[Rfam]
This 80-nucleotide RNA sequence from Pipistrellus kuhlii belongs to the Rfam family "mir-574 microRNA precursor family". The organism belongs to Pipistrellus, within Eukaryota. The base pairs follow the family's consensus structure, which was predicted with RNAalifold. The family has 6 seed sequences and 4,084 matches in Rfam 15.1.
RNA sequence: AGGCCUGAAAGAGAGGCAGGGUCUGGUCUGCAGCCCCUGUGGCAGCUGUUGAUCAGCCAUUGCCUCUCUCUCUCUCCCCA
Dot-bracket structure: ......((.((((((((((.(.((((((..((((..........))))..)))))).).)))))))))).))........